The family of this 84-nucleotide sequence is "skipping-rope RNA".
It is one of the family's seed sequences.
By type it is a small RNA.

[Rfam]
RNA sequence: GUCAUAAGAGGAUAGAACGGGCAGCUAUCACGCCUACUACGUAGGUCUUUUAAGAGAUGCAGGGUUGCCAACCUGCCUUAUGAC
Dot-bracket structure: ((((((((..(((((....[[[[.))))).(((((.......)))).......)....(((((..]]]]..)))))))))))))